Annotation:
The family of this 211-nucleotide RNA sequence from Salvelinus namaycush is "Small nucleolar RNA SNORD17". Its family is annotated with RNA processing and nucleolus in the Gene Ontology. The snoRNA HBI-43 belongs to the C/D family of snoRNAs, guiding 2'O-ribose methylation at position U3797 of the 28S rRNA. Pseudouridylation in position U3797 is predicted to be guided by the H/ACA snoRNA ACA48. The base pairs follow the family's consensus structure, which was predicted with RNAalifold. A search with the family's covariance model found it, with a score of 61 bits.
[Rfam]
RNA sequence: GUGAGAUGAUGAACGUGUUUAUCCAUUCUCUGAGUGCUUGCUAGGGUCCUACUUUCUCUGUGGUGCUCAUGCCUGUUUUAGCCGUGAGUGUCUGCUGUGCCCCUGGCUCCACUCUGCCACCUCAGUGUUCUACUGGGGCAGCUUGUGGUGGGGAAAGGGGCAGGACUGGAGGGCCCUGCGAUAACAAAGACGAGUUGACACACCUGAUCAC
Numbered sequence: 001g002u003g004a005g006a007u008g009a010u011g012a013a014c015g016u017g018u019u020u021a022u023c024c025a026u027u028c029u030c031u032g033a034g035u036g037c038u039u040g041c042u043a044g045g046g047u048c049c050u051a052c053u054u055u056c057u058c059u060g061u062g063g064u065g066c067u068c069a070u071g072c073c074u075g076u077u078u079u080a081g082c083c084g085u086g087a088g089u090g091u092c093u094g095c096u097g098u099g100c101c102c103c104u105g106g107c108u109c110c111a112c113u114c115u116g117c118c119a120c121c122u123c124a125g126u127g128u129u130c131u132a133c134u135g136g137g138g139c140a141g142c143u144u145g146u147g148g149u150g151g152g153g154a155a156a157g158g159g160g161c162a163g164g165a166c167u168g169g170a171g172g173g174c175c176c177u178g179c180g181a182u183a184a185c186a187a188a189g190a191c192g193a194g195u196u197g198a199c200a201c202a203c204c205u206g207a208u209c210a211c
Stems, first nucleotide, its partner, number of pairs: 010210003014206001017203002020200001023197001025195004030189002034185002040179002043177008052168001054165004058160002062092010073081002095157002098154001100152002108148002110145001114141005122136006